A member of the RNA family "tRNA" from Ectocarpus sp. CCAP 1310/34, 72 nucleotides long. It scores 55 bits against the family's covariance model. About the family: Transfer RNA (tRNA) molecules are approximately 80 nucleotides in length. Taxonomically the source falls in Ectocarpus (Eukaryota, Sar, Ectocarpales, Ectocarpaceae).
RNA sequence: GGAGCUGUGGUAUAAUGGUUAGCAUUGAUCCCUGUCACGGAUCAGAUCCGGGUUCAAUUCCCGGCAGCUUCG
Numbered sequence: 001g002g003a004g005c006u007g008u009g010g011u012a013u014a015a016u017g018g019u020u021a022g023c024a025u026u027g028a029u030c031c032c033u034g035u036c037a038c039g040g041a042u043c044a045g046a047u048c049c050g051g052g053u054u055c056a057a058u059u060c061c062c063g064g065c066a067g068c069u070u071c072g
Stems, first nucleotide, its partner, number of pairs: 001071007010025002013022001027043005048064005